RNA sequence: GGAGGCUGCAAACCAUGGAAGCUGUACGCAUGGGGUUGCAGACUAGUGGUUAGAGGAGACCCCUCCCAAGAC
Numbered sequence: 001g002g003a004g005g006c007u008g009c010a011a012a013c014c015a016u017g018g019a020a021g022c023u024g025u026a027c028g029c030a031u032g033g034g035g036u037u038g039c040a041g042a043c044u045a046g047u048g049g050u051u052a053g054a055g056g057a058g059a060c061c062c063c064u065c066c067c068a069a070g071a072c
Stems, first nucleotide, its partner, number of pairs: 001066005006041002013033005018027001048061004
Overview
A member of the RNA family "Flavivirus DB element" from Orthoflavivirus denguei, 72 nucleotides long. The sequence is in the family's curated seed alignment. A reference for the family is Chiu et al. (2005), "Control of translation by the 5'- and 3'-terminal regions of the dengue virus genome", J Virol. It is annotated as a cis-regulatory element. Lineage of the source: Viruses > Orthornavirae > Kitrinoviricota > Flaviviridae > Dengue virus. Rfam links the family to the GO term translation.